RNA: U5 spliceosomal RNA
RNA sequence: AGCCGUGCAAUGAGCACAGAGCGAACUAUUCUUUCGCCUUUUACUAAAGAAUAUUGUGUGCUUGUUGCAAUUAAAUGGCAUACUCCAAUUUUUGGAGGGGACUCAAAACUCUUUUGAGUU
Number, nucleotide and partner (000 for none) at each position: 001a000002g000003c078004c077005g076006u075007g000008c067009a066010a065011u064012g063013a062014g061015c060016a059017c058018a057019g000020a000021g000022c000023g000024a000025a000026c000027u053028a052029u051030u050031c049032u048033u047034u046035c000036g000037c000038c000039u000040u000041u000042u000043a000044c000045u000046a034047a033048a032049g031050a030051a029052u028053a027054u000055u000056g000057u018058g017059u016060g015061c014062u013063u012064g011065u010066u009067g008068c000069a000070a000071u000072u000073a000074a000075a006076u005077g004078g003079c000080a000081u000082a000083c000084u000085c000086c000087a000088a000089u000090u000091u000092u000093u000094g000095g000096a120097g000098g000099g000100g000101a119102c118103u117104c116105a115106a114107a000108a000109c000110u000111c000112u000113u000114u106115u105116g104117a103118g102119u101120u096